[Rfam]
RNA sequence: AUGAUGUGUAGCAUGCCCGUUGCGGAUUACUCUGAUGUUUAAAUGUUAUUUAAUUGUUUUUGGGUAACGGGGUGUUACACCAUA
Number, nucleotide and partner (000 for none) at each position: 001a000002u084003g083004a000005u000006g080007u079008g078009u077010a076011g075012c074013a073014u072015g000016c071017c070018c069019g068020u067021u066022g000023c000024g000025g000026a000027u000028u000029a000030c000031u000032c000033u000034g000035a000036u000037g000038u000039u000040u000041a000042a000043a000044u000045g000046u000047u000048a000049u000050u000051u000052a000053a000054u000055u000056g000057u000058u000059u000060u000061u000062g000063g000064g000065u000066a021067a020068c019069g018070g017071g016072g014073u013074g012075u011076u010077a009078c008079a007080c006081c000082a000083u003084a002
This 84-nucleotide RNA from Medicago truncatula belongs to the Rfam family "MIR2617 microRNA precursor family".
Pairs were carried over by alignment from the consensus structure, which was predicted with RNAalifold.
A search with the family's covariance model found it, with a score of 71 bits.